[Rfam]
RNA: SymR antitoxin
Organism: Salmonella enterica
RNA sequence: AGUCAUGAUGGCUAUUCCUUGAAAAUAGUGAUUGUGAUGAGUGAGAUGGCCGUGUUCCCGCACGGCCAUAUCGCGCU
Numbered sequence: 001a002g003u004c005a006u007g008a009u010g011g012c013u014a015u016u017c018c019u020u021g022a023a024a025a026u027a028g029u030g031a032u033u034g035u036g037a038u039g040a041g042u043g044a045g046a047u048g049g050c051c052g053u054g055u056u057c058c059c060g061c062a063c064g065g066c067c068a069u070a071u072c073g074c075g076c077u
Stems, first nucleotide, its partner, number of pairs: 002038007011029006041074003046069010